[Rfam]
RNA sequence: GGCUUCAUUUCCUUUCUGUAGUCGCGGCUG
Numbered sequence: 001g002g003c004u005u006c007a008u009u010u011c012c013u014u015u016c017u018g019u020a021g022u023c024g025c026g027g028c029u030g
Stems, first nucleotide, its partner, number of pairs: 001023004006018002
Source information
The record is a 30-nucleotide RNA, which matches "S4-Bacteroidia ribosomal protein leader" in Rfam. The family is grouped with related families in Rfam's "Ribosomal Protein S4 Leader clan". The literature on the family includes a 2020 paper in BMC Microbiol by Eckert and Weinberg, "Discovery of 20 novel ribosomal leader candidates in bacteria and archaea".